[Rfam]
RNA: Alphaproteobacterial sRNA BjrC1505
Organism: Rhodovulum sp. PH10
RNA sequence: CAGGCCGGAGUAAGCCGGCGUUAAGCUUUCUCGUUUAUUACCAUGAUCGUCCACUUCGUGGACACCGAGUGGCUCCUGUCCACUCUGUUUGACGCCUCCCUGUUGACACUUUGGGCCGCCCUUCCCGGCGGCCCCUUUUUU
Numbered sequence: 001c002a003g004g005c006c007g008g009a010g011u012a013a014g015c016c017g018g019c020g021u022u023a024a025g026c027u028u029u030c031u032c033g034u035u036u037a038u039u040a041c042c043a044u045g046a047u048c049g050u051c052c053a054c055u056u057c058g059u060g061g062a063c064a065c066c067g068a069g070u071g072g073c074u075c076c077u078g079u080c081c082a083c084u085c086u087g088u089u090u091g092a093c094g095c096c097u098c099c100c101u102g103u104u105g106a107c108a109c110u111u112u113g114g115g116c117c118g119c120c121c122u123u124c125c126c127g128g129c130g131g132c133c134c135c136u137u138u139u140u141u
Base pairs, nucleotide, nucleotide: 001045002044004042007016008015017039018038022037023036024035025034026033049063050062051061052060067085068084069083070082071081072080091104092103093102094101113134114133115132116131117130118129119128120127